Rfam assigns this 83-nucleotide sequence from Rhodopseudomonas palustris to the family "ZMP/ZTP riboswitch aptamer (pfl RNA motif)".

[Rfam]
RNA sequence: CACGCCUCGCGCGACUGGCGACGUUAGGAUGGAGCACCAUCGGGAAGCGCGGGACGUAUCUGCCGCGCGCCUGGGCAUAGCUU
Numbered sequence: 001c002a003c004g005c006c007u008c009g010c011g012c013g014a015c016u017g018g019c020g021a022c023g024u025u026a027g028g029a030u031g032g033a034g035c036a037c038c039a040u041c042g043g044g045a046a047g048c049g050c051g052g053g054a055c056g057u058a059u060c061u062g063c064c065g066c067g068c069g070c071c072u073g074g075g076c077a078u079a080g081c082u083u
Stems, first nucleotide, its partner, number of pairs: 003056002006053007015044002017071004029040004061077004
Rfam links the family to the GO terms regulation of purine nucleotide biosynthetic process and one-carbon metabolic process. The organism belongs to Rhodopseudomonas palustris, within Bacteria.